RNA sequence: AGUCAGUUUCAGGGCGGGGUGCAAUUCCCCACCGGCGGUACAGCCCGCGACCGCAUACCUUGGUAUGCGCUGAUUUGGUGAGAUUCCAAAGCCGACGGUAUAGUCCGGAUGAAAGAAACGGCAG
Numbered sequence: 001a002g003u004c005a006g007u008u009u010c011a012g013g014g015c016g017g018g019g020u021g022c023a024a025u026u027c028c029c030c031a032c033c034g035g036c037g038g039u040a041c042a043g044c045c046c047g048c049g050a051c052c053g054c055a056u057a058c059c060u061u062g063g064u065a066u067g068c069g070c071u072g073a074u075u076u077g078g079u080g081a082g083a084u085u086c087c088a089a090a091g092c093c094g095a096c097g098g099u100a101u102a103g104u105c106c107g108g109a110u111g112a113a114a115g116a117a118a119c120g121g122c123a124g
Stems, first nucleotide, its partner, number of pairs: 004121001006119005017029003031104002033094002035048004043092002052069002074090005096107003
Dot-bracket structure: ...(.(((((......(((.......))).[[((((((....[[))))...((..............))....(((((.......)))))]])).(((....]]))).......))))).)...

The record is a 124-nucleotide sequence from Anaerofilum sp. An201, which matches "FMN riboswitch aptamer (RFN element)" in Rfam.
NCBI's taxonomy places the organism under Bacteria, Bacillota, Eubacteriales, Oscillospiraceae, Anaerofilum.
The match comes from Rfam's covariance-model search (116 bits).
Rfam's curators write: The RFN element is a highly conserved domain that is found frequently in the 5'-untranslated regions of prokaryotic mRNAs that encode for flavin mononucleotide (FMN) biosynthesis and transport proteins.
The base pairs follow the family's consensus structure, which is taken from published work.